Description: This 62-nucleotide sequence belongs to the Rfam family "RAGATH-18 RNA". Pairs were carried over by alignment from the consensus structure, which is taken from published work.
[Rfam]
Nucleotides: 062
Base pairs, nucleotide, nucleotide: 001060002059003058004057009049010048011047012046013045022044023043024042030037031036
Number, partner (000 for none) and nucleotide at each position: 001060c002059c003058u004057u005000u006000g007000g008000a009049g010048u011047a012046u013045u014000a015000u016000a017000u018000c019000a020000a021000a022044c023043a024042c025000g026000a027000g028000u029000a030037g031036a032000u033000u034000u035000u036031u037030c038000g039000a040000a041000a042024g043023u044022g045013g046012a047011u048010a049009c050000u051000a052000u053000g054000a055000a056000u057004a058003a059002g060001g061000a062000a